Nucleotides: 081
Base pairs, nucleotide, nucleotide: 006076007075008074009073010072011071012070013069019029020028021027022026031055032054033053034051035050038049039048040047
Number, partner (000 for none) and nucleotide at each position: 001000a002000u003000g004000a005000a006076g007075a008074u009073a010072g011071c012070u013069g014000g015000a016000g017000a018000g019029u020028g021027g022026a023000a024000u025000u026022u027021c028020c029019a030000c031055a032054c033053c034051g035050a036000a037000g038049a039048g040047g041000a042000a043000a044000a045000a046000u047040c048039u049038u050035u051034c052000a053033g054032g055031u056000g057000c058000g059000u060000a061000a062000g063000c064000g065000a066000g067000g068000a069013c070012a071011g072010c073009u074008a075007u076006u077000g078000g079000a080000c081000g